[Rfam]
RNA sequence: CUGUCCUGCUCGUGACCGUCUUCUCACCCUUCACGGCAGGCGGACGGAGGGCUCCCACCGGCGAUCCGCCGGCGGGAGCCCUCC
Numbered sequence: 001c002u003g004u005c006c007u008g009c010u011c012g013u014g015a016c017c018g019u020c021u022u023c024u025c026a027c028c029c030u031u032c033a034c035g036g037c038a039g040g041c042g043g044a045c046g047g048a049g050g051g052c053u054c055c056c057a058c059c060g061g062c063g064a065u066c067c068g069c070c071g072g073c074g075g076g077a078g079c080c081c082u083c084c
Base pairs, nucleotide, nucleotide: 001043002042003041005040006039007038008037009036012034013033014032015031018028046084047083048082049081050080051079052078053077054076055075056074058072059071060070061069

The family of this 84-nucleotide RNA from Streptomyces sp. SID161 is "sodF sRNA". Rfam links the family to the GO terms negative regulation of translation, regulation of mRNA stability and mRNA binding. On this family, see Kim et al., Nucleic Acids Res 2014: "Inverse regulation of Fe- and Ni-containing SOD genes by a Fur family regulator Nur through small RNA processed from 3'UTR of the sodF mRNA". Rfam 15.1 lists 336 matches to the family in 317 species.